[Rfam]
RNA sequence: AAGUAGAUGCACCCUGAUUGUUAAACCCUAGGACACCUGGAGGGAUCCUAGGGUUUUUUUU
Numbered sequence: 001a002a003g004u005a006g007a008u009g010c011a012c013c014c015u016g017a018u019u020g021u022u023a024a025a026c027c028c029u030a031g032g033a034c035a036c037c038u039g040g041a042g043g044g045a046u047c048c049u050a051g052g053g054u055u056u057u058u059u060u061u
Base pairs, nucleotide, nucleotide: 003012004011026053027052028051029050030049031048032047033046036043
Rfam assigns this 61-nucleotide sequence from Leptolyngbya sp. BL0902 to the family "Nitrogen stress-induced RNA 1". The match comes from Rfam's covariance-model search (52 bits). The family has 17 seed sequences and 962 matches in Rfam 15.1. The organism belongs to Leptolyngbya, within Bacteria. On this family, see Ionescu et al., J Mol Biol 2010: "Heterocyst-specific transcription of NsiR1, a non-coding RNA encoded in a tandem array of direct repeats in cyanobacteria".